[Rfam]
RNA: Mammalian CPEB3 ribozyme
RNA sequence: AGAGGUUGCAAGUUCACGGCCAUAGCAGAAGCACUCAUGGCGUGGCCCUGUCAGAUUUGAACAAAUCAGUGAAUUCUGCU
Numbered sequence: 001a002g003a004g005g006u007u008g009c010a011a012g013u014u015c016a017c018g019g020c021c022a023u024a025g026c027a028g029a030a031g032c033a034c035u036c037a038u039g040g041c042g043u044g045g046c047c048c049u050g051u052c053a054g055a056u057u058u059g060a061a062c063a064a065a066u067c068a069g070u071g072a073a074u075u076c077u078g079c080u
Base pairs, nucleotide, nucleotide: 018047019046020045021044024080025079026078027077028076029075030074031043032042052069054067055066056065057064058063